[Rfam]
RNA sequence: AGCUGAUGCAUAUGACGGUCACCUCCAGUUCCGUCGCAACAGCUGUUCCCCUCUGGAGGUUUUAAAUCUCCACACUUCAUGGGCCGCGGUUUCCGCAGGCCCAUUUUU
Numbered sequence: 001a002g003c004u005g006a007u008g009c010a011u012a013u014g015a016c017g018g019u020c021a022c023c024u025c026c027a028g029u030u031c032c033g034u035c036g037c038a039a040c041a042g043c044u045g046u047u048c049c050c051c052u053c054u055g056g057a058g059g060u061u062u063u064a065a066a067u068c069u070c071c072a073c074a075c076u077u078c079a080u081g082g083g084c085c086g087c088g089g090u091u092u093c094c095g096c097a098g099g100c101c102c103a104u105u106u107u108u
Base pairs, nucleotide, nucleotide: 001044002043003042004041005040007038008037009036015034016033017032018031054072055071056070057069058068059067060066080103081102082101083100084099085098086096087095088094089093

The record is a 108-nucleotide RNA from Agrobacterium bohemicum, which matches "Alphaproteobacterial ar15" in Rfam. A search with the family's covariance model found it, with a score of 106 bits. Its family is annotated with protein binding in the Gene Ontology. Clan: suhB sRNA clan.